[Rfam]
RNA: permuted transfer-messenger RNA
RNA sequence: GGCGAUAAACUGCUGCGUGAAAUAGAUGCAACGGACCCGGGGGCAGUACCCGGCGGCUCCACCAGAAGCGGCGUUUCGGCGCAACUCCUGAUGGGGCCGAACCAGGAUCGACGUGUGUUGAAAGACGUAGUUUUUGCCCGGGCUGAGUAACCCGCAUAAGGCUCAAAAACCAUAAGUGCCAACGAUAACGAAGCACUCGCAAUCGCCGCAUAA
Numbered sequence: 001g002g003c004g005a006u007a008a009a010c011u012g013c014u015g016c017g018u019g020a021a022a023u024a025g026a027u028g029c030a031a032c033g034g035a036c037c038c039g040g041g042g043g044c045a046g047u048a049c050c051c052g053g054c055g056g057c058u059c060c061a062c063c064a065g066a067a068g069c070g071g072c073g074u075u076u077c078g079g080c081g082c083a084a085c086u087c088c089u090g091a092u093g094g095g096g097c098c099g100a101a102c103c104a105g106g107a108u109c110g111a112c113g114u115g116u117g118u119u120g121a122a123a124g125a126c127g128u129a130g131u132u133u134u135u136g137c138c139c140g141g142g143c144u145g146a147g148u149a150a151c152c153c154g155c156a157u158a159a160g161g162c163u164c165a166a167a168a169a170c171c172a173u174a175a176g177u178g179c180c181a182a183c184g185a186u187a188a189c190g191a192a193g194c195a196c197u198c199g200c201a202a203u204c205g206c207c208g209c210a211u212a213a
Stems, first nucleotide, its partner, number of pairs: 001138005015128004027117003031114003037053005054099007139154004